[Rfam]
RNA sequence: GCCCCAGUGGCCUAAUGGAGAAGGCACCGGAUUUCUAAUCCGGGGAUUGUGGGUUCGAGUCCCGCCUGGGGUU
Numbered sequence: 001g002c003c004c005c006a007g008u009g010g011c012c013u014a015a016u017g018g019a020g021a022a023g024g025c026a027c028c029g030g031a032u033u034u035c036u037a038a039u040c041c042g043g044g045g046a047u048u049g050u051g052g053g054u055u056c057g058a059g060u061c062c063c064g065c066c067u068g069g070g071g072u073u
Stems, first nucleotide, its partner, number of pairs: 001072007010025004027043005049065005
Shown here is a 73-nucleotide RNA sequence from Drosophila pseudoobscura, a member of the family "tRNA". Pairs were carried over by alignment from the consensus structure, which is taken from published work. Taxonomically the source falls in Drosophila pseudoobscura (Eukaryota, Eumetabola, Diptera, Drosophilinae). By type it is a transfer RNA. The match comes from Rfam's covariance-model search (67 bits).